[Rfam]
RNA sequence: UGUAGUCAGGCCGGCAAACGCCGCCACCGGAAGUUGGGUAUACGGUGCUGCCUGUGACCCAACCCCAGGAGGACUGGGA
Numbered sequence: 001u002g003u004a005g006u007c008a009g010g011c012c013g014g015c016a017a018a019c020g021c022c023g024c025c026a027c028c029g030g031a032a033g034u035u036g037g038g039u040a041u042a043c044g045g046u047g048c049u050g051c052c053u054g055u056g057a058c059c060c061a062a063c064c065c066c067a068g069g070a071g072g073a074c075u076g077g078g079a
Stems, first nucleotide, its partner, number of pairs: 005058002007054005012023004027045003064078005

The family of this 79-nucleotide RNA from Orthoflavivirus nilense is "General Flavivirus exoribonuclease-resistant RNA element". Rfam classes the family as a cis-regulatory element. NCBI's taxonomy places the organism under Viruses, Flasuviricetes, Amarillovirales, Euflavivirus, Orthoflavivirus nilense. The sequence is in the family's curated seed alignment. Rfam's curators write: The exoribonuclease-resistant RNA elements (xrRNA) are described throughout all groups of flaviviruses. Usually, each virus harbors two xrRNAs, xrRNA1 and xrRNA2, in the beginning of the 3' UTR. The formation of these stem-loops, especially xrRNA1, is vital to ensure resistance against XRN1 activity. The Y-shaped stem-loop is also termed SL II and SL IV, respectively.